This 69-nucleotide RNA from Xanthomonas euvesicatoria belongs to the Rfam family "Fluoride riboswitch aptamer (crcB RNA motif)". The organism belongs to Xanthomonas, within Bacteria.
RNA sequence: GGCCGCACAGGAGAUGGCAUUCCUCCUCGAACCGCACGCACCCUGCGCGCUGAUGAUGCCUGCCCACCC
Numbered sequence: 001g002g003c004c005g006c007a008c009a010g011g012a013g014a015u016g017g018c019a020u021u022c023c024u025c026c027u028c029g030a031a032c033c034g035c036a037c038g039c040a041c042c043c044u045g046c047g048c049g050c051u052g053a054u055g056a057u058g059c060c061u062g063c064c065c066a067c068c069c
Base pairs, nucleotide, nucleotide: 010026011025012024013023016060017059018058019057020056021055034050035049037047038046039045040044